[Rfam]
RNA sequence: UUCGUUAAGAAGAAACAGCCGUUUCUCACCUUUCAACUUCGGUUAGUUGGGUUAUUGAAUUGUUUAUUACGUUAAGUGUUGUAAUAAUAGAGGACGGCUUAUGCCGUCCUUUUAUUUUAUA
Numbered sequence: 001u002u003c004g005u006u007a008a009g010a011a012g013a014a015a016c017a018g019c020c021g022u023u024u025c026u027c028a029c030c031u032u033u034c035a036a037c038u039u040c041g042g043u044u045a046g047u048u049g050g051g052u053u054a055u056u057g058a059a060u061u062g063u064u065u066a067u068u069a070c071g072u073u074a075a076g077u078g079u080u081g082u083a084a085u086a087a088u089a090g091a092g093g094a095c096g097g098c099u100u101a102u103g104c105c106g107u108c109c110u111u112u113u114a115u116u117u118u119a120u121a
Stems, first nucleotide, its partner, number of pairs: 011026006028052003034046001036043002089112010

Shown here is a 121-nucleotide RNA sequence from Sarcina ventriculi, a member of the family "Ribosomal protein L20 leader". Rfam classes the family as a cis-regulatory leader. Pairs were carried over by alignment from the consensus structure, which was predicted with CMfinder.